Notes
The family of this 95-nucleotide RNA is "Fluoride riboswitch aptamer (crcB RNA motif)". It scores 37 bits against the family's covariance model.
RNA sequence: ACUAGAAGAGGUGAUGAAGUUCACCAUGAUCCAGCAAAAUGCAUUCACAGCAAUAUUCCAAGCACACACACAAUGAUAAUGAUUCCUACAAGAAC
Numbered sequence: 001a002c003u004a005g006a007a008g009a010g011g012u013g014a015u016g017a018a019g020u021u022c023a024c025c026a027u028g029a030u031c032c033a034g035c036a037a038a039a040u041g042c043a044u045u046c047a048c049a050g051c052a053a054u055a056u057u058c059c060a061a062g063c064a065c066a067c068a069c070a071c072a073a074u075g076a077u078a079a080u081g082a083u084u085c086c087u088a089c090a091a092g093a094a095c
Stems, first nucleotide, its partner, number of pairs: 010025004016086001018084004042075003